Shown here is a 58-nucleotide RNA from Staphylococcus epidermidis, a member of the family "Ribosomal protein L13 leader".
RNA sequence: UGUUUUAUAUCACCCCACGAUAAGCCCCGGAAACUUAUUGUGUUACAAGAUAUAUAAG
Numbered sequence: 001u002g003u004u005u006u007a008u009a010u011c012a013c014c015c016c017a018c019g020a021u022a023a024g025c026c027c028c029g030g031a032a033a034c035u036u037a038u039u040g041u042g043u044u045a046c047a048a049g050a051u052a053u054a055u056a057a058g
Stems, first nucleotide, its partner, number of pairs: 006054006016042009
Pairs were carried over by alignment from the consensus structure, which was predicted with CMfinder. Taxonomically the source falls in Staphylococcus epidermidis (Bacteria, Bacilli, Caryophanales, Staphylococcus). It is one of the family's seed sequences. Gene Ontology term of the family: regulation of gene expression. This family is a putative r-protein leader autoregulatory structure found in B. subtilis and other low-GC Gram-positive bacteria. It is located in the 5' untranslated regions of mRNAs encoding the L13-S9 (rplM-rpsI) ribosomal protein operon. By type it is a cis-regulatory leader.